[Rfam]
RNA sequence: CGGGAUGUUAUCCCGUCGGAAUGUGACUCAAAAUAUGAGUUGAACCAUGAA
Number, nucleotide and partner (000 for none) at each position: 001c015002g014003g013004g012005a011006u000007g000008u000009u000010a000011u005012c004013c003014c002015g001016u000017c000018g046019g045020a000021a000022u000023g000024u000025g041026a040027c039028u038029c037030a000031a000032a000033a000034u000035a000036u000037g029038a028039g027040u026041u025042g000043a000044a000045c019046c018047a000048u000049g000050a000051a000

Record summary
eL15-Euryarchaeota ribosomal protein leader: a 51-nucleotide sequence from Methanohalobium evestigatum. Pairs were carried over by alignment from the consensus structure, which is taken from published work. The match comes from Rfam's covariance-model search (46 bits). NCBI's taxonomy places the organism under Archaea, Methanosarcinales, Methanosarcinaceae, Methanohalobium, Methanohalobium evestigatum.